RNA: Small nucleolar RNA SNORA13
Organism: Podargus strigoides
RNA sequence: UGCCUUUGUGUUGCCCAUUCAUUCCUGUCCAGAAUGAAUGUGGUGUCAAAAAAGGCAAACAGGAAUUCUUGCUCAAACUGUUUAAGGGACGGUUAUUUACCUUUUCUCCUCCCUGUUUUUGCAAGGACAAAA
Numbered sequence: 001u002g003c004c005u006u007u008g009u010g011u012u013g014c015c016c017a018u019u020c021a022u023u024c025c026u027g028u029c030c031a032g033a034a035u036g037a038a039u040g041u042g043g044u045g046u047c048a049a050a051a052a053a054g055g056c057a058a059a060c061a062g063g064a065a066u067u068c069u070u071g072c073u074c075a076a077a078c079u080g081u082u083u084a085a086g087g088g089a090c091g092g093u094u095a096u097u098u099a100c101c102u103u104u105u106c107u108c109c110u111c112c113c114u115g116u117u118u119u120u121g122c123a124a125g126g127a128c129a130a131a132a
Stems, first nucleotide, its partner, number of pairs: 002056006009048002012045004016040008068125004074121004083115002086112002088109001092104001